The record is a 99-nucleotide sequence from Marinobacter sp. X15-166B, which matches "Glycine riboswitch aptamer" in Rfam. The family is grouped with related families in Rfam's "Glycine riboswitch clan". About the family: This family represents the bacterial glycine riboswitch. Glycine riboswitches usually consist of two metabolite-binding aptamers domains with similar structures in tandem. The aptamers cooperatively bind glycine to regulate the expression of downstream genes. In Bacillus subtilis, this riboswitch is found upstream of the gcvT operon which controls glycine degradation. The organism belongs to Marinobacter, within Bacteria.

RNA sequence: GACGUGUUUGCGGGAGAGACCGAGUUCCACUUUUGUGCAACCGGCGCCGACGGAGCAACUGCCCCGGAAACUCUCAGGCAAAAGGACCGCUAACACGAU
Numbered sequence: 001g002a003c004g005u006g007u008u009u010g011c012g013g014g015a016g017a018g019a020c021c022g023a024g025u026u027c028c029a030c031u032u033u034u035g036u037g038c039a040a041c042c043g044g045c046g047c048c049g050a051c052g053g054a055g056c057a058a059c060u061g062c063c064c065c066g067g068a069a070a071c072u073c074u075c076a077g078g079c080a081a082a083a084g085g086a087c088c089g090c091u092a093a094c095a096c097g098a099u
Stems, first nucleotide, its partner, number of pairs: 006094003010090004020044003046079003049075002053073003059066001